Rfam assigns this 55-nucleotide RNA from Coregonus sp. 'balchen' to the family "UnaL2 LINE 3' element". It scores 64 bits against the family's covariance model. The source organism's lineage runs through Eukaryota, Osteoglossocephalai, Clupeocephala, Protacanthopterygii and Coregonus.
[Rfam]
RNA sequence: AGCACAUGCUAACUGUAAGUCGCUCUGGAUAAGAGCGUCUGCUAAAUGACGUAAA
Numbered sequence: 001a002g003c004a005c006a007u008g009c010u011a012a013c014u015g016u017a018a019g020u021c022g023c024u025c026u027g028g029a030u031a032a033g034a035g036c037g038u039c040u041g042c043u044a045a046a047u048g049a050c051g052u053a054a055a
Base pairs, nucleotide, nucleotide: 014044015042016041017040021037022036023035024034025033026032
The base pairs follow the family's consensus structure, which is taken from published work. By type it is a cis-regulatory element. On this family, see Baba et al., RNA 2004: "Solution structure of an RNA stem-loop derived from the 3' conserved region of eel LINE UnaL2".